[Rfam]
Rfam assigns this 108-nucleotide RNA sequence from Haliea sp. to the family "Glycine riboswitch aptamer".
The literature on the family includes a 2004 paper in Science by Mandal et al., "A glycine-dependent riboswitch that uses cooperative binding to control gene expression".
The match comes from Rfam's covariance-model search (64 bits).
From the family's description: This family represents the bacterial glycine riboswitch.
The source organism's lineage runs through Bacteria, Pseudomonadati, Pseudomonadota, Halieaceae and Haliea.
Its family is annotated with glycine biosynthetic process in the Gene Ontology.

RNA sequence: CGUCACCUUGCUGGAGAGAGGCGCGCAUGCCGAUGAGCAUGCCGCCCACCGAAGGAGCAAACCCGGCGACGGGUGAAUCUCUCAGGUAAAGCGGACAGCACGGGCCCG
Numbered sequence: 001c002g003u004c005a006c007c008u009u010g011c012u013g014g015a016g017a018g019a020g021g022c023g024c025g026c027a028u029g030c031c032g033a034u035g036a037g038c039a040u041g042c043c044g045c046c047c048a049c050c051g052a053a054g055g056a057g058c059a060a061a062c063c064c065g066g067c068g069a070c071g072g073g074u075g076a077a078u079c080u081c082u083c084a085g086g087u088a089a090a091g092c093g094g095a096c097a098g099c100a101c102g103g104g105c106c107c108g
Stems, first nucleotide, its partner, number of pairs: 006103002009100005020046004048087003051083002055081003061074002